[Rfam]
RNA sequence: CGGAAGGGCUCAUACAUGUGCAAUAUUCUCUUAAUGAACUGCACACCACAUACCUUCCAAAAUUAUUGUUGCUCUCUGAUGACCGCAGUUGGUUAAGUUUUUAACUGGGGACAGAUACGGGGCACACACCA
Numbered sequence: 001c002g003g004a005a006g007g008g009c010u011c012a013u014a015c016a017u018g019u020g021c022a023a024u025a026u027u028c029u030c031u032u033a034a035u036g037a038a039c040u041g042c043a044c045a046c047c048a049c050a051u052a053c054c055u056u057c058c059a060a061a062a063u064u065a066u067u068g069u070u071g072c073u074c075u076c077u078g079a080u081g082a083c084c085g086c087a088g089u090u091g092g093u094u095a096a097g098u099u100u101u102u103a104a105c106u107g108g109g110g111a112c113a114g115a116u117a118c119g120g121g122g123c124a125c126a127c128a129c130c131a
Stems, first nucleotide, its partner, number of pairs: 002058006017045003024038001026036001068125001070124006083110002088105004
Background:
The family of this 131-nucleotide RNA from Dendroctonus ponderosae is "Small Cajal body specific RNA 8". By type it is a small Cajal body RNA. Pairs were carried over by alignment from the consensus structure, which is taken from published work. Rfam links the family to the GO terms Cajal body, nucleolus and RNA processing. scaRNAs are a specific class of small nuclear RNAs which localise to the Cajal bodies and guide the modification of RNA polymerase II transcribed spliceosomal RNAs U1, U2, U4, U5 and U12. U92 belong to the H/ACA box class of guide RNAs as it has the predicted hairpin-hinge-hairpin-tail structure, conserved H/ACA-box motifs and is found associated with GAR1. A search with the family's covariance model found it, with a score of 53 bits.